[Rfam]
RNA sequence: AUAAAUCUUGCAGUCAUAAGAAUAAAAUGCCUGGAUUAGUUUUUUUCUUUUCUGGGGCUGCUAUGCGUUAAGCAGUGAAUGGGUUUUUUAAUCGAUUCUAGGAAUGUAUGCAAAAGUGAGAGCGACUUUAUGAAAUGGCUUGGUGGUUUGUCUGAUUCGGCGAAUUAUCACAAUACAACAAAGCUUUAAAAUGCAAGUUAAAGCGAGUAUAUUACUUGGGGCAGAUGACAAGUAACCGAAAGGGGUGGUAAUCAAA
Numbered sequence: 001a002u003a004a005a006u007c008u009u010g011c012a013g014u015c016a017u018a019a020g021a022a023u024a025a026a027a028u029g030c031c032u033g034g035a036u037u038a039g040u041u042u043u044u045u046u047c048u049u050u051u052c053u054g055g056g057g058c059u060g061c062u063a064u065g066c067g068u069u070a071a072g073c074a075g076u077g078a079a080u081g082g083g084u085u086u087u088u089u090a091a092u093c094g095a096u097u098c099u100a101g102g103a104a105u106g107u108a109u110g111c112a113a114a115a116g117u118g119a120g121a122g123c124g125a126c127u128u129u130a131u132g133a134a135a136u137g138g139c140u141u142g143g144u145g146g147u148u149u150g151u152c153u154g155a156u157u158c159g160g161c162g163a164a165u166u167a168u169c170a171c172a173a174u175a176c177a178a179c180a181a182a183g184c185u186u187u188a189a190a191a192u193g194c195a196a197g198u199u200a201a202a203g204c205g206a207g208u209a210u211a212u213u214a215c216u217u218g219g220g221g222c223a224g225a226u227g228a229c230a231a232g233u234a235a236c237c238g239a240a241a242g243g244g245g246u247g248g249u250a251a252u253c254a255a256a
Stems, first nucleotide, its partner, number of pairs: 007197006030056006058075005077098003082093004114128004120141004149227006164252008173210004184203005213234006236243002